[Rfam]
RNA: cspA thermoregulator
RNA sequence: AUCGGUUUGAAAGUACAGACCUAUUUAUGAAAGCAAGUUUUGAAAAGUUCCCCAUCAAGUGUUAUCCAUUGAUAUCCACUCGUAGUGAAUUCCUCCUAAUUAGUUCCAUAAGUAUAAAGAAGUAUCAAACCUAUAUGCCGUGUGGCAACAAUUAAAAUUUAAAGGAAUUCAAUAUGUCUAAUACAAUGACUGGUUUAGUAAAAUGGUUUAACGAAUCUAAAGGCUUUGGCUUUAUUUCUCCUGCUGAUGGCAGCAAAGAUGUGUUCGUACACUUCUCUGCAAUUCAAAGCGACAGCUUCAAAACGCUGAACGAAGGACAAAAAGUUAGCUUCUCAGUAGAGAAUGGUGCAAAAGGUCCAGCGGCUGUAAACGUCGUAGCUCUUUAAGAUACCCGCUUAAUACAGCGCUUAAAAUUUCAAACCCCUGCCAAUUGGCGGGGGUUUUUCG
Numbered sequence: 001a002u003c004g005g006u007u008u009g010a011a012a013g014u015a016c017a018g019a020c021c022u023a024u025u026u027a028u029g030a031a032a033g034c035a036a037g038u039u040u041u042g043a044a045a046a047g048u049u050c051c052c053c054a055u056c057a058a059g060u061g062u063u064a065u066c067c068a069u070u071g072a073u074a075u076c077c078a079c080u081c082g083u084a085g086u087g088a089a090u091u092c093c094u095c096c097u098a099a100u101u102a103g104u105u106c107c108a109u110a111a112g113u114a115u116a117a118a119g120a121a122g123u124a125u126c127a128a129a130c131c132u133a134u135a136u137g138c139c140g141u142g143u144g145g146c147a148a149c150a151a152u153u154a155a156a157a158u159u160u161a162a163a164g165g166a167a168u169u170c171a172a173u174a175u176g177u178c179u180a181a182u183a184c185a186a187u188g189a190c191u192g193g194u195u196u197a198g199u200a201a202a203a204u205g206g207u208u209u210a211a212c213g214a215a216u217c218u219a220a221a222g223g224c225u226u227u228g229g230c231u232u233u234a235u236u237u238c239u240c241c242u243g244c245u246g247a248u249g250g251c252a253g254c255a256a257a258g259a260u261g262u263g264u265u266c267g268u269a270c271a272c273u274u275c276u277c278u279g280c281a282a283u284u285c286a287a288a289g290c291g292a293c294a295g296c297u298u299c300a301a302a303a304c305g306c307u308g309a310a311c312g313a314a315g316g317a318c319a320a321a322a323a324g325u326u327a328g329c330u331u332c333u334c335a336g337u338a339g340a341g342a343a344u345g346g347u348g349c350a351a352a353a354g355g356u357c358c359a360g361c362g363g364c365u366g367u368a369a370a371c372g373u374c375g376u377a378g379c380u381c382u383u384u385a386a387g388a389u390a391c392c393c394g395c396u397u398a399a400u401a402c403a404g405c406g407c408u409u410a411a412a413a414u415u416u417c418a419a420a421c422c423c424c425u426g427c428c429a430a431u432u433g434g435c436g437g438g439g440g441u442u443u444u445u446c447g
Stems, first nucleotide, its partner, number of pairs: 004021006029241001032239002035236001042233002046231003051228001052223002055220001061218001064216002067213001069211004074207001076206002081176004086171002094164001097161003102123001104121003137146003178193003182189001245339001247337002250334001258266002271325004276321001278319002280316001283310004291304001344359003348356002360383001362381002364378004389410002393406004418443011